Rfam assigns this 114-nucleotide RNA sequence from Mesorhizobium sp. Root554 to the family "Alphaproteobacterial ar14". The source organism's lineage runs through Bacteria, Pseudomonadati, Alphaproteobacteria, Hyphomicrobiales and Mesorhizobium. Smr14C2 was renamed NfeR1 (Nodule Formation Efficiency RNA) highly expressed in salt stress and during the symbiotic interaction on legume roots.
RNA sequence: UGAAUACCCGGCCGGCGGUUCCUCCUCCCUCCGUCCGCCGGGAUAGCGGCCAGCACCUCCCGCUGGCCAUUUAUAGGAAAAGGCCGGCACCUCCUCCCGCCGGCCUUUUUCUUU
Numbered sequence: 001u002g003a004a005u006a007c008c009c010g011g012c013c014g015g016c017g018g019u020u021c022c023u024c025c026u027c028c029c030u031c032c033g034u035c036c037g038c039c040g041g042g043a044u045a046g047c048g049g050c051c052a053g054c055a056c057c058u059c060c061c062g063c064u065g066g067c068c069a070u071u072u073a074u075a076g077g078a079a080a081a082g083g084c085c086g087g088c089a090c091c092u093c094c095u096c097c098c099g100c101c102g103g104c105c106u107u108u109u110u111c112u113u114u
Stems, first nucleotide, its partner, number of pairs: 007042003011038002014035004048068006078109011